[Rfam]
RNA sequence: GGAGGGAAAGGAGCUGGUGCUCCCCACGGAAUGCAAAUCCGUUGGCCGUGCUUCAUCAAGCCGGGGUGGCGUUCGAUUCCCACUUCCCUCC
Numbered sequence: 001g002g003a004g005g006g007a008a009a010g011g012a013g014c015u016g017g018u019g020c021u022c023c024c025c026a027c028g029g030a031a032u033g034c035a036a037a038u039c040c041g042u043u044g045g046c047c048g049u050g051c052u053u054c055a056u057c058a059a060g061c062c063g064g065g066g067u068g069g070c071g072u073u074c075g076a077u078u079c080c081c082a083c084u085u086c087c088c089u090c091c
Base pairs, nucleotide, nucleotide: 001091002090003089004088005087006086007085008084010023011022012021013020014019025044026042027041028040029039030038046064047063048062050061051060067082068081069080071079